The record is a 77-nucleotide sequence from Leptidea sinapis, which matches "mir-750 microRNA precursor family" in Rfam.
[Rfam]
Nucleotides: 077
Base pairs, nucleotide, nucleotide: 001077004074005073006072007071009069010068011067012066013065014064015063016062017061019059020058022055023054024053025052026051027050029048031047032046033045034044
Number, partner (000 for none) and nucleotide at each position: 001077u002000a003000u004074u005073c006072g007071u008000c009069u010068g011067a012066g013065u014064u015063g016062g017061a018000c019059a020058g021000c022055g023054g024053a025052u026051c027050u028000u029048g030000a031047c032046a033045g034044u035000u036000u037000g038000c039000u040000a041000a042000a043000u044034g045033c046032u047031g048029c049000c050027a051026g052025a053024u054023c055022u056000a057000u058020c059019u060000u061017u062016c063015c064014a065013g066012c067011u068010c069009a070000c071007a072006c073005g074004a075000u076000a077001a
Rfam 15.1 lists 33 matches to the family in 33 species.